This 127-nucleotide sequence from Felis catus belongs to the Rfam family "Small nucleolar RNA SNORA25". The sequence is in the family's curated seed alignment. Taxonomically the source falls in Felis (Eukaryota, Bilateria, Boreoeutheria, Laurasiatheria). ACA25 is a member of the H/ACA class of snoRNA that guide the sites of modification of uridines to pseudouridines. The family has 30 seed sequences and 1,129 matches in Rfam 15.1. Its family is annotated with nucleolus and RNA processing in the Gene Ontology. By type it is an H/ACA-box small nucleolar RNA. The family's consensus secondary structure was predicted with RNAfold.

[Rfam]
RNA sequence: AGGUCAUUUCAAAGAGGGCUUGUGGGGCUAAAACCAAGAGCCCUUAACGCUGUGACCAGAUAUCGAAGUUCUCCAUAGGAUAUAAUAGUUACUCAGUGUUGCUAUGUUUUCCUGAGGAGAUACAAGA
Numbered sequence: 001a002g003g004u005c006a007u008u009u010c011a012a013a014g015a016g017g018g019c020u021u022g023u024g025g026g027g028c029u030a031a032a033a034c035c036a037a038g039a040g041c042c043c044u045u046a047a048c049g050c051u052g053u054g055a056c057c058a059g060a061u062a063u064c065g066a067a068g069u070u071c072u073c074c075a076u077a078g079g080a081u082a083u084a085a086u087a088g089u090u091a092c093u094c095a096g097u098g099u100u101g102c103u104a105u106g107u108u109u110u111c112c113u114g115a116g117g118a119g120a121u122a123c124a125a126g127a
Stems, first nucleotide, its partner, number of pairs: 002057006014045008023037001026035002070120005077113004085105005091099002